[Rfam]
A member of the RNA family "SAM (S-adenosyl methionine) riboswitch aptamer" from Actinoplanes sp. SE50/110, 118 nucleotides long.

Nucleotides: 118
Stems, first nucleotide, its partner, number of pairs: 001081004009038001011037006021030002039068003044064003048059002084107005090102001092101003
Number, partner (000 for none) and nucleotide at each position: 001081g002080g003079u004078c005000a006000u007000g008000a009038g010000u011037g012036u013035c014034a015033g016032c017000g018000u019000c020000a021030a022029g023000c024000c025000c026000c027000g028000g029022c030021u031000c032016g033015c034014u035013g036012a037011c038009c039068g040067g041066c042000a043000a044064c045063c046062c047000u048059u049058c050000c051000u052000g053000u054000u055000c056000g057000c058049g059048a060000u061000g062046g063045g064044g065000u066041g067040c068039c069000c070000c071000g072000g073000g074000u075000g076000a077000g078004g079003a080002c081001c082000g083000g084107g085106c086105c087104g088103u089000u090102u091000c092101g093100c094099c095000g096000a097000c098000c099094g100093g101092c102090g103088a104087c105086g106085g107084c108000a109000a110000g111000c112000g113000c114000u115000g116000a117000a118000c
The match comes from Rfam's covariance-model search (107 bits).
NCBI's taxonomy places the organism under Bacteria, Actinomycetes, Micromonosporales, Micromonosporaceae, Actinoplanes.
From the family's description: SAM-IV is a mRNA element that regulates gene expression via direct sensing of S-adenosylmethionine (SAM or AdoMet).